This 130-nucleotide RNA sequence from Pelagovum pacificum belongs to the Rfam family "Alphaproteobacterial ar14". The family's RNA type in Rfam is small RNA. A reference for the family is del Val et al. (2012), "A survey of sRNA families in alpha-proteobacteria", RNA Biol. Taxonomically the source falls in Pelagovum (Bacteria, Pseudomonadati, Pseudomonadota, Rhodobacterales). Smr14C2 was renamed NfeR1 (Nodule Formation Efficiency RNA) highly expressed in salt stress and during the symbiotic interaction on legume roots.
RNA sequence: AAGGUUCGGAGCUCUCUCUCCUCCUCCCUGAGAGCUCUGAGCGCGGUUCGCUCUCUCCUCCUCCCUGAGCGGAUCGCACCUAGAAGAAGCGGCGGCACCCUCUCCUCCUCCCUGGGUGUCGCCGCCUUCC
Numbered sequence: 001a002a003g004g005u006u007c008g009g010a011g012c013u014c015u016c017u018c019u020c021c022u023c024c025u026c027c028c029u030g031a032g033a034g035c036u037c038u039g040a041g042c043g044c045g046g047u048u049c050g051c052u053c054u055c056u057c058c059u060c061c062u063c064c065c066u067g068a069g070c071g072g073a074u075c076g077c078a079c080c081u082a083g084a085a086g087a088a089g090c091g092g093c094g095g096c097a098c099c100c101u102c103u104c105c106u107c108c109u110c111c112c113u114g115g116g117u118g119u120c121g122c123c124g125c126c127u128u129c130c
Base pairs, nucleotide, nucleotide: 007039008038009037010036011035012034013033014032015031016030044076045075046074047073048072049071050070051069052068053067089125090124091123092122093121094120095119096118097117098116099115